[Rfam]
RNA sequence: UUUUUAUCGGAUGAUAACUGUCACGUGUCAUGUUCUGUAUUUCAUUUUUCAUGAAGUUGAUAUUCAAUCAGAACAUGUUCUGUAUUUCAUUUUUCAUGGAGUUGACAUUCAAUCAGAACAUGACACGUGACAAUCAUCAUCC
Numbered sequence: 001u002u003u004u005u006a007u008c009g010g011a012u013g014a015u016a017a018c019u020g021u022c023a024c025g026u027g028u029c030a031u032g033u034u035c036u037g038u039a040u041u042u043c044a045u046u047u048u049u050c051a052u053g054a055a056g057u058u059g060a061u062a063u064u065c066a067a068u069c070a071g072a073a074c075a076u077g078u079u080c081u082g083u084a085u086u087u088c089a090u091u092u093u094u095c096a097u098g099g100a101g102u103u104g105a106c107a108u109u110c111a112a113u114c115a116g117a118a119c120a121u122g123a124c125a126c127g128u129g130a131c132a133a134u135c136a137u138c139a140u141c142c
Base pairs, nucleotide, nucleotide: 020131021130022129023128025126026125029122030121031120033118034117035116036115039113040112041111
RNA: MIR1520 microRNA precursor family
Organism: Glycine soja